[Rfam]
Description: A member of the RNA family "L31-Firmicutes ribosomal protein leader" from Scopulibacillus darangshiensis, 34 nucleotides long. On this family, see Eckert and Weinberg, BMC Microbiol 2020: "Discovery of 20 novel ribosomal leader candidates in bacteria and archaea". The organism belongs to Scopulibacillus, within Bacteria.
RNA sequence: CUCUGGUUUGAAAUAAAAUCAGGGCGAAAAGGAG
Numbered sequence: 001c002u003c004u005g006g007u008u009u010g011a012a013a014u015a016a017a018a019u020c021a022g023g024g025c026g027a028a029a030a031g032g033a034g
Stems, first nucleotide, its partner, number of pairs: 001024005007016002

Background
The family's RNA type in Rfam is cis-regulatory leader. It scores 34 bits against the family's covariance model.